[Rfam]
A member of the RNA family "Archaeal signal recognition particle RNA" from Thermoplasmatales archaeon A-plasma, 305 nucleotides long. The match comes from Rfam's covariance-model search (189 bits). NCBI's taxonomy places the organism under Archaea, Methanobacteriati, Thermoplasmatota, Thermoplasmata, Thermoplasmatales.
RNA sequence: AGCCGGACUUGGCCGGGAAGCCAGACACUUCCUGUUACCCGAAGCCUACAUGCGGGGGCGACAGCCGGGAAAGGGCAACCAGACUUCUGGCAGGCCCUGUGGAAUCAAUGACGUUCUGUCCCUUCGGAUCGAAGGUUCGGGAAUUGCAGAUCGAAGGAACUGCAGAUCCCGAUUUACCAGGAGAACCCGUCAGGACCGGAAGGGAGCACCGGUAUCCUGGACUCUUGAUGCUGAAGGGGUGCGGGAUCGAGAGGAAGCAGGGGGCACCUGUCAGGACAUCUGGUCCGAUCCCGGUGAGUCCGGUU
Numbered sequence: 001a002g003c004c005g006g007a008c009u010u011g012g013c014c015g016g017g018a019a020g021c022c023a024g025a026c027a028c029u030u031c032c033u034g035u036u037a038c039c040c041g042a043a044g045c046c047u048a049c050a051u052g053c054g055g056g057g058g059c060g061a062c063a064g065c066c067g068g069g070a071a072a073g074g075g076c077a078a079c080c081a082g083a084c085u086u087c088u089g090g091c092a093g094g095c096c097c098u099g100u101g102g103a104a105u106c107a108a109u110g111a112c113g114u115u116c117u118g119u120c121c122c123u124u125c126g127g128a129u130c131g132a133a134g135g136u137u138c139g140g141g142a143a144u145u146g147c148a149g150a151u152c153g154a155a156g157g158a159a160c161u162g163c164a165g166a167u168c169c170c171g172a173u174u175u176a177c178c179a180g181g182a183g184a185a186c187c188c189g190u191c192a193g194g195a196c197c198g199g200a201a202g203g204g205a206g207c208a209c210c211g212g213u214a215u216c217c218u219g220g221a222c223u224c225u226u227g228a229u230g231c232u233g234a235a236g237g238g239g240u241g242c243g244g245g246a247u248c249g250a251g252a253g254g255a256a257g258c259a260g261g262g263g264g265c266a267c268c269u270g271u272c273a274g275g276a277c278a279u280c281u282g283g284u285c286c287g288a289u290c291c292c293g294g295u296g297a298g299u300c301c302g303g304u305u
Stems, first nucleotide, its partner, number of pairs: 001305009010061001012059003015033006038056004064295007073286004080282003085276010095262006105252002113247007120238008128229005133223002135174001137172006144165006151158002177220006187212003196203002
Overview: Its Rfam clan is "SRP clan". On this family, see Wild et al., Curr Opin Struct Biol 2002: "Towards the structure of the mammalian signal recognition particle". The family's RNA type in Rfam is non-coding RNA gene. Rfam links the family to the GO terms SRP-dependent cotranslational protein targeting to membrane, signal sequence recognition and signal recognition particle, plasma membrane targeting.